U4 spliceosomal RNA: a 141-nucleotide sequence from Mastacembelus armatus. The match comes from Rfam's covariance-model search (115 bits). Its Rfam clan is "U4 clan". The organism belongs to Mastacembelus, within Eukaryota. Rfam links the family to the GO terms U4 snRNP and spliceosomal tri-snRNP complex assembly. Rfam classes the family as a spliceosomal small nuclear RNA.

RNA sequence: AUCCUUUCUCAGUGGCAGUAUCGUAGCCUAUGAGGUUUGUCCGAGGCGCGAUUGUUGCUAGUUGAAAACUUUACCCAAUACCCCGCCUUGACGACUUGAAACAUAGUCGGUGAUGGCAAUUUUUGAUGGUCUCUAAGGAGA
Numbered sequence: 001a002u003c004c005u006u007u008c009u010c011a012g013u014g015g016c017a018g019u020a021u022c023g024u025a026g027c028c029u030a031u032g033a034g035g036u037u038u039g040u041c042c043g044a045g046g047c048g049c050g051a052u053u054g055u056u057g058c059u060a061g062u063u064g065a066a067a068a069c070u071u072u073a074c075c076c077a078a079u080a081c082c083c084c085g086c087c088u089u090g091a092c093g094a095c096u097u098g099a100a101a102c103a104u105a106g107u108c109g110g111u112g113a114u115g116g117c118a119a120u121u122u123u124u125g126a127u128g129g130u131c132u133c134u135a136a137g138g139a140g141a
Stems, first nucleotide, its partner, number of pairs: 020052005026047003034042002085117003088113003092109005130141004
Dot-bracket structure: ...................(((((.(((.....((.....))..))))))))................................((((((.(((((........))))).))).)))............((((....))))